MAT2A 3'UTR stem loop A: a 65-nucleotide RNA from Labeo rohita.
By type it is a cis-regulatory element.
RNA sequence: GUUUUUCCUCUCUAGGCCUGUUGGCGUAUUCUACAGAGAAGCCCACACGGCUUAGGGGAGAAGUC
Numbered sequence: 001g002u003u004u005u006u007c008c009u010c011u012c013u014a015g016g017c018c019u020g021u022u023g024g025c026g027u028a029u030u031c032u033a034c035a036g037a038g039a040a041g042c043c044c045a046c047a048c049g050g051c052u053u054a055g056g057g058g059a060g061a062a063g064u065c
Stems, first nucleotide, its partner, number of pairs: 001065001003063002009058003013054004019047002023043003026034002

NCBI's taxonomy places the organism under Eukaryota, Ostariophysi, Cyprinoidei, Labeonini, Labeo. A search with the family's covariance model found it, with a score of 56 bits.